[Rfam]
RNA sequence: UGGCGCCCGAACAGGGACCUGGACAUGGGGGAAGAAGUGAGGAAGAAGGCACUAAAAUCGGCCAAAAGUAAAAGUGGAAGAAAUUCCUCUGGAUGUCAUGGGAACCUGCCGCGUUGGAACCAGAGGUAAGUAACAGUGUCUGAUUAUGGGACAAGAGUUAAGCCAGCAUCAGAUUUAUGUAGGGCAAUUAAAAGAGGCUCUAAAAACACGAGGAGUAAGGGUUAAAAGUAAUGAUUUGUUUAAAUUUUUUGAUUUUGUAAAAGAUACCUGCCCUU
Numbered sequence: 001u002g003g004c005g006c007c008c009g010a011a012c013a014g015g016g017a018c019c020u021g022g023a024c025a026u027g028g029g030g031g032a033a034g035a036a037g038u039g040a041g042g043a044a045g046a047a048g049g050c051a052c053u054a055a056a057a058u059c060g061g062c063c064a065a066a067a068g069u070a071a072a073a074g075u076g077g078a079a080g081a082a083a084u085u086c087c088u089c090u091g092g093a094u095g096u097c098a099u100g101g102g103a104a105c106c107u108g109c110c111g112c113g114u115u116g117g118a119a120c121c122a123g124a125g126g127u128a129a130g131u132a133a134c135a136g137u138g139u140c141u142g143a144u145u146a147u148g149g150g151a152c153a154a155g156a157g158u159u160a161a162g163c164c165a166g167c168a169u170c171a172g173a174u175u176u177a178u179g180u181a182g183g184g185c186a187a188u189u190a191a192a193a194g195a196g197g198c199u200c201u202a203a204a205a206a207c208a209c210g211a212g213g214a215g216u217a218a219g220g221g222u223u224a225a226a227a228g229u230a231a232u233g234a235u236u237u238g239u240u241u242a243a244a245u246u247u248u249u250u251g252a253u254u255u256u257g258u259a260a261a262a263g264a265u266a267c268c269u270g271c272c273c274u275u
Stems, first nucleotide, its partner, number of pairs: 006031003013026001015024001038046001085128001087126001088124002094119001097113001099111003136152002139150004159202002162198003209251008219237006260275002263272001265270001
Annotation
The family of this 275-nucleotide RNA from Piliocolobus tephrosceles is "Mason-Pfizer monkey virus packaging signal". Rfam classes the family as a cis-regulatory element. A reference for the family is Mustafa et al. (2004), "Mutational analysis of the predicted secondary RNA structure of the Mason-Pfizer monkey virus packaging signal", Virus Res. The base pairs follow the family's consensus structure, which was predicted with PFOLD. A search with the family's covariance model found it, with a score of 204 bits. This family represents a group of sequences that are related to the Mason-Pfizer monkey virus (MPMV) packaging signal. The packaging signal is located in the 5' UTR and is required for specific RNA encapsidation. The source organism's lineage runs through Eukaryota, Teleostomi, Amniota, Cercopithecoidea and Piliocolobus.